[Rfam]
RNA sequence: GGCGUAAAGGGCUCGUAGGCGGUUUGUUGCGUCGAAAGUGAAAAUCCGGGGCUUAACUCCGGACUUGCUUUCGAUACGGGCAGACUAGAGGUAGGCAGGGGAGAGUGGAAUUCCUGGUGUAGCGGUGGAAUGCGCAGAUAUCAGGAGGAACACCGGUGGCGAAGGCGGCUCUCUGGGCCUUACCUGACGCUGAGGAGCGAAAGCGUGGGGAGCGAACAGGAUUAGAUACCCUGGUAGUCCACGCCGUAAACGUUGGGCGCUAGGUGUGGGGGACUUCCACGUUCUCCGUGCCGCAGCUAACGCAUUAAGCGCCCCGCCUGGGGAGUACGGCCGCAAGGCUAAAACUCAAAGGAAU
Number, nucleotide and partner (000 for none) at each position: 001g318002g317003c316004g000005u000006a000007a000008a000009g315010g000011g198012c197013u196014c195015g000016u192017a000018g191019g190020c189021g000022g085023u084024u083025u082026g081027u080028u079029g000030c078031g077032u074033c073034g072035a071036a070037a069038g068039u067040g066041a000042a000043a000044a000045u063046c062047c061048g060049g059050g058051g057052c000053u000054u000055a000056a000057c051058u050059c049060c048061g047062g046063a045064c000065u000066u040067g039068c038069u037070u036071u035072c034073g033074a032075u000076a000077c031078g030079g028080g027081c026082a025083g024084a023085c022086u000087a000088g000089a185090g184091g183092u000093a180094g179095g178096c177097a000098g000099g000100g174101g173102a172103g171104a170105g169106u168107g151108g000109a000110a000111u147112u146113c145114c144115u143116g142117g141118u140119g000120u000121a000122g133123c132124g131125g000126u000127g000128g000129a000130a000131u124132g123133c122134g000135c000136a000137g000138a000139u000140a118141u117142c116143a115144g114145g113146a112147g111148g000149a000150a000151c107152a000153c000154c000155g000156g000157u000158g000159g166160c165161g000162a000163a000164g000165g160166c159167g000168g106169c105170u104171c103172u102173c101174u100175g000176g000177g096178c095179c094180u093181u000182a000183c091184c090185u089186g000187a000188c000189g020190c019191u018192g016193a000194g000195g014196a013197g012198c011199g000200a000201a000202a000203g244204c243205g242206u241207g240208g239209g000210g000211a000212g238213c237214g000215a000216a000217c233218a232219g231220g230221a000222u000223u000224a000225g000226a000227u000228a000229c000230c220231c219232u218233g217234g000235u000236a000237g213238u212239c208240c207241a206242c205243g204244c203245c000246g000247u000248a000249a000250a000251c000252g000253u000254u000255g314256g313257g312258c311259g310260c309261u000262a000263g292264g291265u290266g289267u288268g287269g286270g285271g284272g283273a282274c281275u000276u000277c000278c000279a000280c000281g274282u273283u272284c271285u270286c269287c268288g267289u266290g265291c264292c263293g000294c000295a000296g303297c302298u000299a000300a000301c000302g297303c296304a000305u000306u000307a000308a000309g260310c259311g258312c257313c256314c255315c009316g003317c002318c001319u000320g347321g346322g345323g000324a000325g000326u000327a000328c000329g340330g339331c338332c337333g000334c000335a000336a000337g332338g331339c330340u329341a000342a000343a000344a000345c322346u321347c320348a000349a000350a000351g000352g000353a000354a000355u000

The family of this 355-nucleotide part of an RNA from Actinopolymorpha singaporensis is "Bacterial small subunit ribosomal RNA". Gene Ontology terms of the family: structural constituent of ribosome and ribosome. For this family Rfam cites "Crystal structure of the ribosome at 5.5 A resolution" (Yusupov et al., Science, 2001).